[Rfam]
RNA sequence: GAACUCCAUAGUGAACGACCGUAGACAGCAGGUGCCGCACAGGCCUAAGUGGCGUUUUCGCCAGCCCGCCGAGGUCGGAUGUCGCGCCUCCCGGGGCGCGCGCGUCUGGGUGCUACAUCUCAGACCUCCGACUGGCUAUGGUCGGAGGUCUUUCUUCAUGUUC
Numbered sequence: 001g002a003a004c005u006c007c008a009u010a011g012u013g014a015a016c017g018a019c020c021g022u023a024g025a026c027a028g029c030a031g032g033u034g035c036c037g038c039a040c041a042g043g044c045c046u047a048a049g050u051g052g053c054g055u056u057u058u059c060g061c062c063a064g065c066c067c068g069c070c071g072a073g074g075u076c077g078g079a080u081g082u083c084g085c086g087c088c089u090c091c092c093g094g095g096g097c098g099c100g101c102g103c104g105u106c107u108g109g110g111u112g113c114u115a116c117a118u119c120u121c122a123g124a125c126c127u128c129c130g131a132c133u134g135g136c137u138a139u140g141g142u143c144g145g146a147g148g149u150c151u152u153u154c155u156u157c158a159u160g161u162u163c
Base pairs, nucleotide, nucleotide: 028069029068031066032065033064034044035043036042125148126147127146128145129144130143131142132141133140134139

The family of this 163-nucleotide RNA from Symbiobacterium thermophilum is "Ribosomal protein L10 leader". It is one of the family's seed sequences. The organism belongs to Symbiobacterium thermophilum, within Bacteria. It is annotated as a cis-regulatory leader. Rfam's curators write: This family is a putative r-protein leader autoregulatory structure found in B. subtilis and other low-GC Gram-positive bacteria.